A member of the RNA family "Archaeal large subunit ribosomal RNA" from Methanospirillum hungatei, 97 nucleotides of a longer RNA. Gene Ontology terms of the family: ribosome and structural constituent of ribosome.

RNA sequence: GAUACGGCACGAAAGGAUCUUCAAAGCGAAGGAACGAGUUGCGAGACUCAAGUACGGGUUUUGUUGCCGGUGUCGUAUCGUACGUUUUGAAGAACGG
Numbered sequence: 001g002a003u004a005c006g007g008c009a010c011g012a013a014a015g016g017a018u019c020u021u022c023a024a025a026g027c028g029a030a031g032g033a034a035c036g037a038g039u040u041g042c043g044a045g046a047c048u049c050a051a052g053u054a055c056g057g058g059u060u061u062u063g064u065u066g067c068c069g070g071u072g073u074c075g076u077a078u079c080g081u082a083c084g085u086u087u088u089g090a091a092g093a094a095c096g097g
Base pairs, nucleotide, nucleotide: 001079002078003077004076005075006074007073008072009071010070015068016067022063023062024061025060026059027058031055036049037048038047039046040045083096084095085094